The record is a 541-nucleotide part of an RNA from Coniochaeta ligniaria, which matches "Eukaryotic small subunit ribosomal RNA" in Rfam.
Its family is annotated with ribosome and structural constituent of ribosome in the Gene Ontology.
Taxonomically the source falls in Coniochaeta ligniaria (Eukaryota, Pezizomycotina, sordariomyceta, Coniochaetaceae).
Rfam 15.1 lists 75,755 matches to the family in 2,556 species.
[Rfam]
RNA sequence: AAAGUUGUUAUAGUUAAAAAGCUCGUAGUUAAACCUUAAGUUUAGUUAGCUAGUCUACUUUAUUAUAUAUAUUAGUCUAGUUAAGCCUUUUCUUUUAGGGAACUAUAUACCUUUUAUUAGGUAUAUCGGAGAACUAAGACUUUUACUUUAAAUAAAUUAAAUCGCUUAAAAAAGGCUUAUAUUUAAAUACAUUAGUAUAGAAUAAUAGAAUAAGACGUAUAAUUCUAUUUUAUUAGUUUCUAAGACUAUUAUAAUAAUUAAUAGAGAUAGUCGAAGGUAUUAGUAUUUAAUUAUUAGAAGUGAAAUUCUUAAAUUUAUUAAAGAUUAACUACUACGAAAGUAUUUGCUAAGGAUAUUUUUAUUAAUUAGGAACAAAAGUUAGAAGAUUAAAGAUAAUUAGAUAUCAUUGUAGUUUUAACUAUAAACUAUAUUAACUAAGGAUUAGACGAUAUUAUACUUUAACUCGUUUAGUACUUUAUACGAAAGUAAAGUUUUUAGGUUUUAGGAGAAGUAUAGUUGUAAGGUUGAAAUUUAAAAAAAU
Numbered sequence: 001a002a003a004g005u006u007g008u009u010a011u012a013g014u015u016a017a018a019a020a021g022c023u024c025g026u027a028g029u030u031a032a033a034c035c036u037u038a039a040g041u042u043u044a045g046u047u048a049g050c051u052a053g054u055c056u057a058c059u060u061u062a063u064u065a066u067a068u069a070u071a072u073u074a075g076u077c078u079a080g081u082u083a084a085g086c087c088u089u090u091u092c093u094u095u096u097a098g099g100g101a102a103c104u105a106u107a108u109a110c111c112u113u114u115u116a117u118u119a120g121g122u123a124u125a126u127c128g129g130a131g132a133a134c135u136a137a138g139a140c141u142u143u144u145a146c147u148u149u150a151a152a153u154a155a156a157u158u159a160a161a162u163c164g165c166u167u168a169a170a171a172a173a174g175g176c177u178u179a180u181a182u183u184u185a186a187a188u189a190c191a192u193u194a195g196u197a198u199a200g201a202a203u204a205a206u207a208g209a210a211u212a213a214g215a216c217g218u219a220u221a222a223u224u225c226u227a228u229u230u231u232a233u234u235a236g237u238u239u240c241u242a243a244g245a246c247u248a249u250u251a252u253a254a255u256a257a258u259u260a261a262u263a264g265a266g267a268u269a270g271u272c273g274a275a276g277g278u279a280u281u282a283g284u285a286u287u288u289a290a291u292u293a294u295u296a297g298a299a300g301u302g303a304a305a306u307u308c309u310u311a312a313a314u315u316u317a318u319u320a321a322a323g324a325u326u327a328a329c330u331a332c333u334a335c336g337a338a339a340g341u342a343u344u345u346g347c348u349a350a351g352g353a354u355a356u357u358u359u360u361a362u363u364a365a366u367u368a369g370g371a372a373c374a375a376a377a378g379u380u381a382g383a384a385g386a387u388u389a390a391a392g393a394u395a396a397u398u399a400g401a402u403a404u405c406a407u408u409g410u411a412g413u414u415u416u417a418a419c420u421a422u423a424a425a426c427u428a429u430a431u432u433a434a435c436u437a438a439g440g441a442u443u444a445g446a447c448g449a450u451a452u453u454a455u456a457c458u459u460u461a462a463c464u465c466g467u468u469u470a471g472u473a474c475u476u477u478a479u480a481c482g483a484a485a486g487u488a489a490a491g492u493u494u495u496u497a498g499g500u501u502u503u504a505g506g507a508g509a510a511g512u513a514u515a516g517u518u519g520u521a522a523g524g525u526u527g528a529a530a531u532u533u534a535a536a537a538a539a540a541u
Base pairs, nucleotide, nucleotide: 011504012503013502019501021373023371024370028366029365030364264360265359266358267357268355269354271352272351276348277347278346279345282326283325286322287321288320289319290318291317293315297308298307299306334341335340378419379418380417381416382415383414388412392408393407394406430500431499432498433493434492435491437476438475439474442471443470444469445468446467447466448465449464452462453461480487481486506533507532508531515526516525517524518523

Description:
For this family Rfam cites "Crystal structure of the ribosome at 5.5 A resolution" (Yusupov et al., Science, 2001).